RNA sequence: AGAGGUCCCAAGCUGGAGGCCAUAGCAGAAGGGCUCAUGGCACAGCCAUAUCCAAUUCCAAUGAAUCUGUGAAUUCUGCU
Dot-bracket structure: ...............[.[[[...((((((((.(.......).).]]].]..(..((((....))))..)....)))))))